[Rfam]
RNA sequence: UCCGGUCCUCGGUAGUAGCCUCCGGGAGGCACAGCACGUGCCAGGCCCGUGGGCUUCGAUCGAUGACCGAC
Numbered sequence: 001u002c003c004g005g006u007c008c009u010c011g012g013u014a015g016u017a018g019c020c021u022c023c024g025g026g027a028g029g030c031a032c033a034g035c036a037c038g039u040g041c042c043a044g045g046c047c048c049g050u051g052g053g054c055u056u057c058g059a060u061c062g063a064u065g066a067c068c069g070a071c
Stems, first nucleotide, its partner, number of pairs: 003069005009063005017055005023049004

The record is a 71-nucleotide RNA sequence from Nesterenkonia sandarakina, which matches "Actino-pnp RNA" in Rfam. It is annotated as a cis-regulatory element. The organism belongs to Nesterenkonia, within Bacteria.